A member of the RNA family "Actino-pnp RNA" from Antricoccus suffuscus, 78 nucleotides long. Pairs were carried over by alignment from the consensus structure, which is taken from published work. The match comes from Rfam's covariance-model search (54 bits). The source organism's lineage runs through Bacteria, Bacillati, Actinomycetota, Actinomycetes and Antricoccus.
[Rfam]
RNA sequence: ACUGGCCCUCGGUGGUGGCCAACGGAACGCACCGGACAUCCGUCCAGACCGAUCCGCUGGCUUCGAUCGAAGACCGGU
Numbered sequence: 001a002c003u004g005g006c007c008c009u010c011g012g013u014g015g016u017g018g019c020c021a022a023c024g025g026a027a028c029g030c031a032c033c034g035g036a037c038a039u040c041c042g043u044c045c046a047g048a049c050c051g052a053u054c055c056g057c058u059g060g061c062u063u064c065g066a067u068c069g070a071a072g073a074c075c076g077g078u
Stems, first nucleotide, its partner, number of pairs: 001078005007072001009070005017062005023056004028051002